RNA: permuted transfer-messenger RNA
Organism: Rhodocyclaceae bacterium
RNA sequence: GGUUGUAAUUCCGGCAAUCUGGAAGCGCUUCGGACGCGGGUUCGAUUCCCGCCACCUCCACCUAAGAGCAUCAUAAGCAUCACAUCGUAGUGUUCUUAGUUGGGGGUGCACUGGUUUCGACGGGGUGAGUGAAGGAGAGCAGGCAACUCGUCAGGCGAUCGACGUUAAUGAAGCAAAUCCAUAAUUGCCAAUGAUGAGCAAUUUGCUAUUGCCGCCUAA
Numbered sequence: 001g002g003u004u005g006u007a008a009u010u011c012c013g014g015c016a017a018u019c020u021g022g023a024a025g026c027g028c029u030u031c032g033g034a035c036g037c038g039g040g041u042u043c044g045a046u047u048c049c050c051g052c053c054a055c056c057u058c059c060a061c062c063u064a065a066g067a068g069c070a071u072c073a074u075a076a077g078c079a080u081c082a083c084a085u086c087g088u089a090g091u092g093u094u095c096u097u098a099g100u101u102g103g104g105g106g107u108g109c110a111c112u113g114g115u116u117u118c119g120a121c122g123g124g125g126u127g128a129g130u131g132a133a134g135g136a137g138a139g140c141a142g143g144c145a146a147c148u149c150g151u152c153a154g155g156c157g158a159u160c161g162a163c164g165u166u167a168a169u170g171a172a173g174c175a176a177a178u179c180c181a182u183a184a185u186u187g188c189c190a191a192u193g194a195u196g197a198g199c200a201a202u203u204u205g206c207u208a209u210u211g212c213c214g215c216c217u218a219a
Stems, first nucleotide, its partner, number of pairs: 001148005015137001026127003030123003036052005053108007149164004